[Rfam]
The family of this 106-nucleotide sequence from Eubacterium sp. AF36-5BH is "TPP riboswitch aptamer (THI element)". The family has 115 seed sequences and 16,130 matches in Rfam 15.1. The source organism's lineage runs through Bacteria, Bacillati, Bacillota, Eubacteriales and Eubacterium.
RNA sequence: AAUUAAAUACAGGGGAGCUUGUAGGCAGGCUGAGAGGAAGUAAUCAACUUCGACCCUUAAACCUGAUUUGGAUAAUGCCAACGUAGGAAUUAAGUAUAGGAUUUAU
Numbered sequence: 001a002a003u004u005a006a007a008u009a010c011a012g013g014g015g016a017g018c019u020u021g022u023a024g025g026c027a028g029g030c031u032g033a034g035a036g037g038a039a040g041u042a043a044u045c046a047a048c049u050u051c052g053a054c055c056c057u058u059a060a061a062c063c064u065g066a067u068u069u070g071g072a073u074a075a076u077g078c079c080a081a082c083g084u085a086g087g088a089a090u091u092a093a094g095u096a097u098a099g100g101a102u103u104u105a106u
Stems, first nucleotide, its partner, number of pairs: 008092002011057004017030005037051005062087004068081004